[Rfam]
RNA sequence: AUUAAAUGAUGAAUUUAGUUUUUGCAUUUUUUUCUGGCAUCUCUAAUGUUAGGGCGGGUGUUUAAGUACUCUCCGUUCGAUGAAUACAACUUUUGACUAUAAACCUGAAU
Numbered sequence: 001a002u003u004a005a006a007u008g009a010u011g012a013a014u015u016u017a018g019u020u021u022u023u024g025c026a027u028u029u030u031u032u033u034c035u036g037g038c039a040u041c042u043c044u045a046a047u048g049u050u051a052g053g054g055c056g057g058g059u060g061u062u063u064a065a066g067u068a069c070u071c072u073c074c075g076u077u078c079g080a081u082g083a084a085u086a087c088a089a090c091u092u093u094u095g096a097c098u099a100u101a102a103a104c105c106u107g108a109a110u
Stems, first nucleotide, its partner, number of pairs: 053077004